[Rfam]
RNA sequence: GCUCUUGUUUCUCUUCAGAGCGAAUAAAUCUUUUGCCUUUUACUAAAAGAUUUCUGUGGAGAGCAACACUGGAAAAUUAAUUAAAUUUUUGAGUCUUCUUCUGGUAAUACA
Numbered sequence: 001g002c003u004c005u006u007g008u009u010u011c012u013c014u015u016c017a018g019a020g021c022g023a024a025u026a027a028a029u030c031u032u033u034u035g036c037c038u039u040u041u042a043c044u045a046a047a048a049g050a051u052u053u054c055u056g057u058g059g060a061g062a063g064c065a066a067c068a069c070u071g072g073a074a075a076a077u078u079a080a081u082u083a084a085a086u087u088u089u090u091g092a093g094u095c096u097u098c099u100u101c102u103g104g105u106a107a108u109a110c111a
Stems, first nucleotide, its partner, number of pairs: 003075001005073002007067003011063007026053008097111001099109001
Background
This 111-nucleotide RNA sequence from Pteropus alecto belongs to the Rfam family "U5 spliceosomal RNA". Rfam describes the family as follows. U5 RNA is a component of both types of known spliceosome. It scores 62 bits against the family's covariance model.